[Rfam]
RNA sequence: AAGGCCCUGUCUCUCCGAAGUCCUAAGUUCCACUUAGGAUACUGAUGUAGGAGAGGCGGGGCCUU
Numbered sequence: 001a002a003g004g005c006c007c008u009g010u011c012u013c014u015c016c017g018a019a020g021u022c023c024u025a026a027g028u029u030c031c032a033c034u035u036a037g038g039a040u041a042c043u044g045a046u047g048u049a050g051g052a053g054a055g056g057c058g059g060g061g062c063c064u065u
Stems, first nucleotide, its partner, number of pairs: 001065016020040009